The record is a 537-nucleotide part of an RNA from Blastocystis hominis, which matches "Eukaryotic small subunit ribosomal RNA" in Rfam. The family is grouped with related families in Rfam's "SSU clan". Taxonomically the source falls in Blastocystis (Eukaryota, Sar, Bigyra, Opalozoa). Rfam's curators put it in the seed alignment.
RNA sequence: CAGUUAAAAAGCUCGUAGUUGAAGUUUAGAUAAUUUAUUGAAAGUGUUUGUAUUCGUACAUUCUACUUUUAUGUAAGUUAUCGACAUCCAGGUGGGUGCCAUGGUUCCGCAAGGAACUGUGGUACUAGACUGGUCAUUUACUGUGAGAAAAUUAGAGUGUUUAAAGCAGACUUUUAUUCAGUUUGAAUAGAUUAGCAUGGAAUAAUAAGAUUGGCUUUCAUAGUCGAUUUUUUGGUUUGUUUAUGAAAGCAAGAUUAAUAGGGACAGUUGGGGGUAUUCAUAUUCAAUAGCUAGAGGUGAAAUUCUAUGAUUUAUGGAAGAUGAACUAGUGCGAAAGCAUUUACCAAGGAUGUUUUCAUUAAUCAAGAACGAAAGCUAGGGGAUCAAAGAGGAUUAGAUACCCUCGUAGUCUUAGCUAUAAACGAUACCGACUAGGAGUUAGUAGAUGAUCCAAUGGUGUCUAUUAGUACCUUAUGAGAAAUCAAAGUCUUUGGGUUCCGGGGGGAGUAUGGUCGCAAGGCUGAAACUUAAAGGAAU
Numbered sequence: 001c002a003g004u005u006a007a008a009a010a011g012c013u014c015g016u017a018g019u020u021g022a023a024g025u026u027u028a029g030a031u032a033a034u035u036u037a038u039u040g041a042a043a044g045u046g047u048u049u050g051u052a053u054u055c056g057u058a059c060a061u062u063c064u065a066c067u068u069u070u071a072u073g074u075a076a077g078u079u080a081u082c083g084a085c086a087u088c089c090a091g092g093u094g095g096g097u098g099c100c101a102u103g104g105u106u107c108c109g110c111a112a113g114g115a116a117c118u119g120u121g122g123u124a125c126u127a128g129a130c131u132g133g134u135c136a137u138u139u140a141c142u143g144u145g146a147g148a149a150a151a152u153u154a155g156a157g158u159g160u161u162u163a164a165a166g167c168a169g170a171c172u173u174u175u176a177u178u179c180a181g182u183u184u185g186a187a188u189a190g191a192u193u194a195g196c197a198u199g200g201a202a203u204a205a206u207a208a209g210a211u212u213g214g215c216u217u218u219c220a221u222a223g224u225c226g227a228u229u230u231u232u233u234g235g236u237u238u239g240u241u242u243a244u245g246a247a248a249g250c251a252a253g254a255u256u257a258a259u260a261g262g263g264a265c266a267g268u269u270g271g272g273g274g275u276a277u278u279c280a281u282a283u284u285c286a287a288u289a290g291c292u293a294g295a296g297g298u299g300a301a302a303u304u305c306u307a308u309g310a311u312u313u314a315u316g317g318a319a320g321a322u323g324a325a326c327u328a329g330u331g332c333g334a335a336a337g338c339a340u341u342u343a344c345c346a347a348g349g350a351u352g353u354u355u356u357c358a359u360u361a362a363u364c365a366a367g368a369a370c371g372a373a374a375g376c377u378a379g380g381g382g383a384u385c386a387a388a389g390a391g392g393a394u395u396a397g398a399u400a401c402c403c404u405c406g407u408a409g410u411c412u413u414a415g416c417u418a419u420a421a422a423c424g425a426u427a428c429c430g431a432c433u434a435g436g437a438g439u440u441a442g443u444a445g446a447u448g449a450u451c452c453a454a455u456g457g458u459g460u461c462u463a464u465u466a467g468u469a470c471c472u473u474a475u476g477a478g479a480a481a482u483c484a485a486a487g488u489c490u491u492u493g494g495g496u497u498c499c500g501g502g503g504g505g506a507g508u509a510u511g512g513u514c515g516c517a518a519g520g521c522u523g524a525a526a527c528u529u530a531a532a533g534g535a536a537u
Base pairs, nucleotide, nucleotide: 001500003498009497011370013368014367018363019362020361261357262356263355264354265352266351268349269348273345274344275343276342279323280322283319284318285317287315288314289313290312294305295304296303331338332337375416376415377414378413379412380411385409389405390404391403392402427496428495429494430489431488432487434472435471436470439467440466441465442464443463444462445461446460449458450457476483477482502529503528504527511522512521513520514519